[Rfam]
Shown here is a 115-nucleotide sequence from Treponema phagedenis, a member of the family "TD-2 RNA". For this family Rfam cites "Identification of 22 candidate structured RNAs in bacteria using the CMfinder comparative genomics pipeline" (Weinberg et al., Nucleic Acids Res, 2007). The organism belongs to Treponema, within Bacteria.
RNA sequence: ACCGCCACGGACGGCGGUGGUUCCAAACAGAAACGAUGUUUUAAAGCAAGGCAGUUUACAAAGCUUUAAAACUCGUAGGUUUCAUUUUGCCACGGAUGGCAAAAUGAAAUCGUUG
Numbered sequence: 001a002c003c004g005c006c007a008c009g010g011a012c013g014g015c016g017g018u019g020g021u022u023c024c025a026a027a028c029a030g031a032a033a034c035g036a037u038g039u040u041u042u043a044a045a046g047c048a049a050g051g052c053a054g055u056u057u058a059c060a061a062a063g064c065u066u067u068a069a070a071a072c073u074c075g076u077a078g079g080u081u082u083c084a085u086u087u088u089g090c091c092a093c094g095g096a097u098g099g100c101a102a103a104a105u106g107a108a109a110u111c112g113u114u115g
Stems, first nucleotide, its partner, number of pairs: 001018006034075003038072010078111014
Dot-bracket structure: ((((((......))))))...............(((.((((((((((...............)))))))))))))..((((((((((((((......))))))))))))))....